Rfam assigns this 91-nucleotide RNA from Actinoplanes italicus to the family "Glycine riboswitch aptamer".
RNA sequence: AACACCGAUGCGGGAGAGACCUUUUUCGAAAAGGCGCCGAAGGGGCAAUUCCUCCCCGGAACCUCUCAGGCACCCGAACCGUAUUGGCUAG
Numbered sequence: 001a002a003c004a005c006c007g008a009u010g011c012g013g014g015a016g017a018g019a020c021c022u023u024u025u026u027c028g029a030a031a032a033g034g035c036g037c038c039g040a041a042g043g044g045g046c047a048a049u050u051c052c053u054c055c056c057c058g059g060a061a062c063c064u065c066u067c068a069g070g071c072a073c074c075c076g077a078a079c080c081g082u083a084u085u086g087g088c089u090a091g
Base pairs, nucleotide, nucleotide: 006086007085008084009083010082011081012080013079020034021033022032023031036071037070038069039067040066043065044064045063049059050058
The base pairs follow the family's consensus structure.